This 79-nucleotide RNA sequence from Cohnella cholangitidis belongs to the Rfam family "ZMP/ZTP riboswitch aptamer (pfl RNA motif)". A search with the family's covariance model found it, with a score of 54 bits. Taxonomically the source falls in Cohnella (Bacteria, Bacilli, Caryophanales, Paenibacillaceae). Gene Ontology terms of the family: regulation of purine nucleotide biosynthetic process and one-carbon metabolic process. The family's consensus secondary structure is taken from published work.
Nucleotides: 079
Base pairs, nucleotide, nucleotide: 003053005051006050007049008048010046011045012044015041016040017067018066019065020064021063026037027036028035029034058072059071060070
Number, partner (000 for none) and nucleotide at each position: 001000u002000a003053a004000a005051c006050u007049g008048c009000g010046c011045g012044u013000u014000a015041c016040u017067g018066g019065c020064g021063u022000a023000a024000a025000c026037a027036u028035g029034g030000a031000u032000a033000a034029c035028c036027a037026u038000g039000a040016g041015g042000g043000a044012g045011c046010g047000g048008g049007c050006a051005g052000a053003u054000a055000u056000c057000g058072g059071c060070c061000g062000u063021a064020c065019g066018c067017c068000u069000g070060g071059g072058c073000a074000a075000a076000g077000u078000g079000c